[Rfam]
RNA sequence: UUCCAUCUUCGGGGCAGGGUGAAAUUCCCGACCGACGGUAAUGAGCAGUAUUGUUCUAAGUCCGUGACCCGCCUGAGCAAAGUCUCGGCGGUUGACCUGGUGUAAGUCCAGGACCGACAGUUACAGUCUGGAUGGGAGAAGAUGUCG
Numbered sequence: 001u002u003c004c005a006u007c008u009u010c011g012g013g014g015c016a017g018g019g020u021g022a023a024a025u026u027c028c029c030g031a032c033c034g035a036c037g038g039u040a041a042u043g044a045g046c047a048g049u050a051u052u053g054u055u056c057u058a059a060g061u062c063c064g065u066g067a068c069c070c071g072c073c074u075g076a077g078c079a080a081a082g083u084c085u086c087g088g089c090g091g092u093u094g095a096c097c098u099g100g101u102g103u104a105a106g107u108c109c110a111g112g113a114c115c116g117a118c119a120g121u122u123a124c125a126g127u128c129u130g131g132a133u134g135g136g137a138g139a140a141g142a143u144g145u146c147g
Base pairs, nucleotide, nucleotide: 004144005143006142007141008140009139010138017029018028019027031127032126033116034115035065036064037063038062060114061113069091070090096112097111098110099109100108118130119129120128
RNA: FMN riboswitch aptamer (RFN element)
Organism: Lentibacillus populi